[Rfam]
Glycine riboswitch aptamer: a 107-nucleotide sequence from Salipaludibacillus neizhouensis. Pairs were carried over by alignment from the consensus structure.
Nucleotides: 107
Base pairs, nucleotide, nucleotide: 006102007101008100009099011097012096013095020047021046022045049087050086051085052083053082056081057080058079062074063073
Number, partner (000 for none) and nucleotide at each position: 001000a002000u003000g004000a005000a006102a007101a008100u009099a010000u011097g012096g013095g014000g015000a016000g017000a018000g019000a020047a021046u022045g023000u024000u025000c026000c027000g028000u029000a030000c031000g032000u033000a034000a035000a036000u037000g038000a039000a040000c041000g042000g043000a044000c045022c046021a047020u048000c049087g050086c051085c052083g053082a054000a055000g056081g057080a058079g059000c060000a061000a062074g063073c064000g065000u066000c067000u068000u069000u070000g071000a072000c073063g074062u075000g076000a077000a078000u079058c080057u081056c082053u083052c084000a085051g086050g087049c088000a089000a090000a091000a092000a093000g094000a095013c096012u097011c098000u099009u100008a101007u102006u103000g104000g105000a106000c107000g